[Rfam]
RNA sequence: AGAUUGAGUAGAAGCGGCUAGCCGUCGAUCCAAAUACCAUCGACUGUGGGGCAUUGCUCGUGAC
Numbered sequence: 001a002g003a004u005u006g007a008g009u010a011g012a013a014g015c016g017g018c019u020a021g022c023c024g025u026c027g028a029u030c031c032a033a034a035u036a037c038c039a040u041c042g043a044c045u046g047u048g049g050g051g052c053a054u055u056g057c058u059c060g061u062g063a064c
Base pairs, nucleotide, nucleotide: 005060006059007058008057009056010055015049018051019050021047022046024044025043026042027041028040029039
RNA: Xanthine riboswitch aptamer (NMT1 RNA)
Organism: Herbaspirillum lusitanum